[Rfam]
RNA sequence: CGCACACGAGCACGCGUUCCCCCGAGCCCGGUUUCCGCCGGAUCGGACGGCCCGCUCCGGUGUCGAGACCGUGUCUCGGCUAUCGCUCGUGGAGGUUGAACCGGAAAACCCGAGGAAAGAC
Numbered sequence: 001c002g003c004a005c006a007c008g009a010g011c012a013c014g015c016g017u018u019c020c021c022c023c024g025a026g027c028c029c030g031g032u033u034u035c036c037g038c039c040g041g042a043u044c045g046g047a048c049g050g051c052c053c054g055c056u057c058c059g060g061u062g063u064c065g066a067g068a069c070c071g072u073g074u075c076u077c078g079g080c081u082a083u084c085g086c087u088c089g090u091g092g093a094g095g096u097u098g099a100a101c102c103g104g105a106a107a108a109c110c111c112g113a114g115g116a117a118a119g120a121c
Base pairs, nucleotide, nucleotide: 001094003092005091006090007089008088009087010086014055015054062080063079064078065077066076067075068074069073